[Rfam]
RNA: L2-Alphaproteobacteria ribosomal protein leader
Organism: Rhodobacter sp. 24-YEA-8
RNA sequence: GGGGAUCUUCGGAGCCCUUAACCCCGGGCCGAAAAGCCACCUUCAGAUCGCAAGAUCAGCGGGCGGCACUUAUGGCCCAUGAAGCAAACGGAAGACAGAGA
Numbered sequence: 001g002g003g004g005a006u007c008u009u010c011g012g013a014g015c016c017c018u019u020a021a022c023c024c025c026g027g028g029c030c031g032a033a034a035a036g037c038c039a040c041c042u043u044c045a046g047a048u049c050g051c052a053a054g055a056u057c058a059g060c061g062g063g064c065g066g067c068a069c070u071u072a073u074g075g076c077c078c079a080u081g082a083a084g085c086a087a088a089c090g091g092a093a094g095a096c097a098g099a100g101a
Base pairs, nucleotide, nucleotide: 001018002017003016004015006014008012026078027077028076029075030074031073